[Rfam]
RNA sequence: GGAGGUAGUUCGUUCGCUGGUGCGGCGCACGGUCUUCAAAACCGAUGGGGGGCGUACCCCGUCCCUGGUGUGUUCGAUUCACAUCUACCUCC
Numbered sequence: 001g002g003a004g005g006u007a008g009u010u011c012g013u014u015c016g017c018u019g020g021u022g023c024g025g026c027g028c029a030c031g032g033u034c035u036u037c038a039a040a041a042c043c044g045a046u047g048g049g050g051g052g053c054g055u056a057c058c059c060c061g062u063c064c065c066u067g068g069u070g071u072g073u074u075c076g077a078u079u080c081a082c083a084u085c086u087a088c089c090u091c092c
Stems, first nucleotide, its partner, number of pairs: 001092008011027003015024003030044004048066005069083004

The record is a 92-nucleotide RNA sequence from Desulfuromusa kysingii, which matches "Selenocysteine transfer RNA" in Rfam. The organism belongs to Desulfuromusa, within Bacteria. It scores 69 bits against the family's covariance model. Rfam links the family to the GO term triplet codon-amino acid adaptor activity. On this family, see Mizutani and Goto, FEBS Lett 2000: "Eukaryotic selenocysteine tRNA has the 9/4 secondary structure".